Overview:
A member of the RNA family "DUF805b RNA", 35 nucleotides long. The family's RNA type in Rfam is cis-regulatory element. Rfam's curators put it in the seed alignment. The family is grouped with related families in Rfam's "DUF805 clan".
RNA sequence: GAGGCGGCAACCGAAAAGCCAUAAGAGAGUAGGUA
Numbered sequence: 001g002a003g004g005c006g007g008c009a010a011c012c013g014a015a016a017a018g019c020c021a022u023a024a025g026a027g028a029g030u031a032g033g034u035a
Stems, first nucleotide, its partner, number of pairs: 003020003010034003